Annotation
The record is a 64-nucleotide sequence from Paraburkholderia sp. DHOC27, which matches "Fluoride riboswitch aptamer (crcB RNA motif)" in Rfam.
[Rfam]
RNA sequence: UAGCGUCACGGAGAUGGCAUUCCUCCGUAUAACCGCCUCCCCGGCUGAUGAUGCCUAUGUUCCC
Numbered sequence: 001u002a003g004c005g006u007c008a009c010g011g012a013g014a015u016g017g018c019a020u021u022c023c024u025c026c027g028u029a030u031a032a033c034c035g036c037c038u039c040c041c042c043g044g045c046u047g048a049u050g051a052u053g054c055c056u057a058u059g060u061u062c063c064c
Base pairs, nucleotide, nucleotide: 010026011025012024013023016055017054018053019052020051021050035045036044037043

Source information: A search with the family's covariance model found it, with a score of 50 bits. Pairs were carried over by alignment from the consensus structure, which is taken from published work. The source organism's lineage runs through Bacteria, Pseudomonadota, Betaproteobacteria, Burkholderiaceae and Paraburkholderia.